[Rfam]
RNA sequence: AAUUCUGUUCGUAGAACAAGAAAGCGAUCUAUUCUAUACCCAUAAGUACCAAUACGCAAUGUGG
Numbered sequence: 001a002a003u004u005c006u007g008u009u010c011g012u013a014g015a016a017c018a019a020g021a022a023a024g025c026g027a028u029c030u031a032u033u034c035u036a037u038a039c040c041c042a043u044a045a046g047u048a049c050c051a052a053u054a055c056g057c058a059a060u061g062u063g064g
Base pairs, nucleotide, nucleotide: 003021004020006018007017008016009015010014039063041061046055047054048053